[Rfam]
RNA sequence: UACCUAGUUAAUUCUACUAGUAGUCAUAUGCUUGUCUUAAAGAUUAAGCCAUGCAUGUCUAAGUAUAAGCACUUAUACUAUGAAACUGCGAAUGGCUCAUUAAAUCAGUUAUCGUUUAUUUAAUAGUACCUUACUAUAUAGAUACCCGUGGUAAUUCUAGAGCUAAUAUAUACUAAAAACCUCGACUUCGGAAGGGGUGUGUUUAUUAGAUAAAAAACCAAUGCUAUUCGUGGCUUCUUAGUGAUUCAUAGUAACCAAACGAAUCGCAUGGCCUUAAGCCGGCAAUGGUUCAUUUAAAUUUCUACCCUAUUAACUUUCGAUGGUAGGAUAGUAGCCUACUAUAGUAUUAACGGGUAACGGGGAAUUAGGGUUCGAUUCCGGAGAGGGAGCCUAAGAAAUAGCUACUAUAUCUAAGGAAGGCAGUAGGCGCGUAAAUUACCCAAUCCCGACACGGGGAGGUAGUAAUAAUAAAUACUAAUACAGGGCUCUUUUGGGUCUUGUAAUUGGAAUAAGUAUAAUUUAAAUCUCUUAACGAGGAAUAAUUAGAGGGUAAGUCUAGUACUAGCAGCCGCGGUAAUUCCAGCUCCAAUAGCGUAUAUU
Numbered sequence: 001u002a003c004c005u006a007g008u009u010a011a012u013u014c015u016a017c018u019a020g021u022a023g024u025c026a027u028a029u030g031c032u033u034g035u036c037u038u039a040a041a042g043a044u045u046a047a048g049c050c051a052u053g054c055a056u057g058u059c060u061a062a063g064u065a066u067a068a069g070c071a072c073u074u075a076u077a078c079u080a081u082g083a084a085a086c087u088g089c090g091a092a093u094g095g096c097u098c099a100u101u102a103a104a105u106c107a108g109u110u111a112u113c114g115u116u117u118a119u120u121u122a123a124u125a126g127u128a129c130c131u132u133a134c135u136a137u138a139u140a141g142a143u144a145c146c147c148g149u150g151g152u153a154a155u156u157c158u159a160g161a162g163c164u165a166a167u168a169u170a171u172a173c174u175a176a177a178a179a180c181c182u183c184g185a186c187u188u189c190g191g192a193a194g195g196g197g198u199g200u201g202u203u204u205a206u207u208a209g210a211u212a213a214a215a216a217a218c219c220a221a222u223g224c225u226a227u228u229c230g231u232g233g234c235u236u237c238u239u240a241g242u243g244a245u246u247c248a249u250a251g252u253a254a255c256c257a258a259a260c261g262a263a264u265c266g267c268a269u270g271g272c273c274u275u276a277a278g279c280c281g282g283c284a285a286u287g288g289u290u291c292a293u294u295u296a297a298a299u300u301u302c303u304a305c306c307c308u309a310u311u312a313a314c315u316u317u318c319g320a321u322g323g324u325a326g327g328a329u330a331g332u333a334g335c336c337u338a339c340u341a342u343a344g345u346a347u348u349a350a351c352g353g354g355u356a357a358c359g360g361g362g363a364a365u366u367a368g369g370g371u372u373c374g375a376u377u378c379c380g381g382a383g384a385g386g387g388a389g390c391c392u393a394a395g396a397a398a399u400a401g402c403u404a405c406u407a408u409a410u411c412u413a414a415g416g417a418a419g420g421c422a423g424u425a426g427g428c429g430c431g432u433a434a435a436u437u438a439c440c441c442a443a444u445c446c447c448g449a450c451a452c453g454g455g456g457a458g459g460u461a462g463u464a465a466u467a468a469u470a471a472a473u474a475c476u477a478a479u480a481c482a483g484g485g486c487u488c489u490u491u492u493g494g495g496u497c498u499u500g501u502a503a504u505u506g507g508a509a510u511a512a513g514u515a516u517a518a519u520u521u522a523a524a525u526c527u528c529u530u531a532a533c534g535a536g537g538a539a540u541a542a543u544u545a546g547a548g549g550g551u552a553a554g555u556c557u558a559g560u561a562c563u564a565g566c567a568g569c570c571g572c573g574g575u576a577a578u579u580c581c582a583g584c585u586c587c588a589a590u591a592g593c594g595u596a597u598a599u600u
Stems, first nucleotide, its partner, number of pairs: 004020005022600003026597007035470001037468003041463001042430001048428003052425003057089002062087003069081001096383003107303002111299002115297002121292001123290001137172004146162001149159003179198005186191001203254006217242002220239001224233003264285001266283002269281004306354003313345003320342008358380004362373004385406002388403003408419001410417002436461001438460003444456005476506003479502010513533002515530001517529001543589002546586003556583002559580001565572002